[Rfam]
RNA sequence: AGUUGAUGAUGUGGACAUCUCCUUAGCAGUUCCUUAAAACACUCCCAAGCCUCAUAUAGUGUCUCCAUGUCCAUCUGUAUAAAAGAAGUGAUAUUAUUGUGUAUCU
Numbered sequence: 001a002g003u004u005g006a007u008g009a010u011g012u013g014g015a016c017a018u019c020u021c022c023u024u025a026g027c028a029g030u031u032c033c034u035u036a037a038a039a040c041a042c043u044c045c046c047a048a049g050c051c052u053c054a055u056a057u058a059g060u061g062u063c064u065c066c067a068u069g070u071c072c073a074u075c076u077g078u079a080u081a082a083a084a085g086a087a088g089u090g091a092u093a094u095u096a097u098u099g100u101g102u103a104u105c106u
Stems, first nucleotide, its partner, number of pairs: 001106001004103001006100001056074002059071001

Plant small nucleolar RNA R71: a 106-nucleotide RNA from Cocos nucifera. The organism belongs to Cocos, within Eukaryota. On this family, see Brown et al., Trends Plant Sci 2003: "Plant snoRNAs: functional evolution and new modes of gene expression". Its family is annotated with RNA processing and nucleolus in the Gene Ontology. It scores 46 bits against the family's covariance model.